[Rfam]
RNA: Small nucleolar RNA snR43
Organism: Torulaspora delbrueckii
RNA sequence: AACUCCUAUUUCUGCCCCAUAUUUCCUUUCUUCUAUGAGAUAAUGGGUCUUGUAACGGAGAAGAGAAAGCCAGGUAAUGUCCCAUGCACACUUUUGAUACAACCGUGUUUGGGAUGUUGGCUGGAUCGUGUGAAUGCAUUAUUCGAUCUGCUGCGCUAGUGAUGCACAGUAGGAUUUGAUGCUUCUCUAUAUAC
Numbered sequence: 001a002a003c004u005c006c007u008a009u010u011u012c013u014g015c016c017c018c019a020u021a022u023u024u025c026c027u028u029u030c031u032u033c034u035a036u037g038a039g040a041u042a043a044u045g046g047g048u049c050u051u052g053u054a055a056c057g058g059a060g061a062a063g064a065g066a067a068a069g070c071c072a073g074g075u076a077a078u079g080u081c082c083c084a085u086g087c088a089c090a091c092u093u094u095u096g097a098u099a100c101a102a103c104c105g106u107g108u109u110u111g112g113g114a115u116g117u118u119g120g121c122u123g124g125a126u127c128g129u130g131u132g133a134a135u136g137c138a139u140u141a142u143u144c145g146a147u148c149u150g151c152u153g154c155g156c157u158a159g160u161g162a163u164g165c166a167c168a169g170u171a172g173g174a175u176u177u178g179a180u181g182c183u184u185c186u187c188u189a190u191a192u193a194c
Stems, first nucleotide, its partner, number of pairs: 003060004016047004020042006070124004075119010086108004130187001132185002136182005147173007